Shown here is an 80-nucleotide RNA from Centaurea solstitialis, a member of the family "mir-399 microRNA precursor family". Rfam links the family to the GO terms RISC complex and miRNA-mediated post-transcriptional gene silencing.
[Rfam]
RNA sequence: GGAUGCAUUACUGGGUAGCUACUCCUUUAGCAGCUAGUAAACUACUAUCUGCCAAGGGAGAUUUGCCCUGCAAUUCAUCA
Numbered sequence: 001g002g003a004u005g006c007a008u009u010a011c012u013g014g015g016u017a018g019c020u021a022c023u024c025c026u027u028u029a030g031c032a033g034c035u036a037g038u039a040a041a042c043u044a045c046u047a048u049c050u051g052c053c054a055a056g057g058g059a060g061a062u063u064u065g066c067c068c069u070g071c072a073a074u075u076c077a078u079c080a
Base pairs, nucleotide, nucleotide: 005076007074008073009072011070013068014067015066016065017064018063022060023059024058025057028054030052031051032050033049035047036046037045038044039043